RNA sequence: AAAUGACAAAGGGGGACCAUAGAAGGAGCGUUCACGUCGCAGCCCCUGUCAGGUAUCGGUUUACCUGCGAAUCCUUCU
Number, nucleotide and partner (000 for none) at each position: 001a000002a000003a000004u000005g000006a000007c000008a000009a000010a000011g000012g000013g046014g045015g044016a000017c042018c000019a000020u000021a078022g077023a076024a075025g074026g073027a072028g040029c039030g038031u000032u000033c000034a000035c000036g000037u000038c030039g029040c028041a000042g017043c000044c015045c014046c013047u000048g000049u000050c067051a066052g065053g064054u063055a062056u000057c000058g000059g000060u000061u000062u055063a054064c053065c052066u051067g050068c000069g000070a000071a000072u027073c026074c025075u024076u023077c022078u021
Record summary: The family of this 78-nucleotide RNA sequence from Laticauda laticaudata is "Mammalian CPEB3 ribozyme".